[Rfam]
RNA sequence: UAACCAUCCAGAGCAGCGAAGAGACUUGGCUCGAUGAAGCUGCAGCAACCCCCGGUUAACGGUGAGGGUGCUUCCGCCAAGAUCGAUGGAGG
Numbered sequence: 001u002a003a004c005c006a007u008c009c010a011g012a013g014c015a016g017c018g019a020a021g022a023g024a025c026u027u028g029g030c031u032c033g034a035u036g037a038a039g040c041u042g043c044a045g046c047a048a049c050c051c052c053c054g055g056u057u058a059a060c061g062g063u064g065a066g067g068g069u070g071c072u073u074c075c076g077c078c079a080a081g082a083u084c085g086a087u088g089g090a091g092g
Stems, first nucleotide, its partner, number of pairs: 001092001004089005013043005021032003026080004044072004049068002051064001053062001076084001

The record is a 92-nucleotide sequence from Boudabousia tangfeifanii, which matches "SAM riboswitch aptamer (S box leader)" in Rfam.
It scores 54 bits against the family's covariance model.
Taxonomically the source falls in Boudabousia (Bacteria, Bacillati, Actinomycetales, Actinomycetaceae).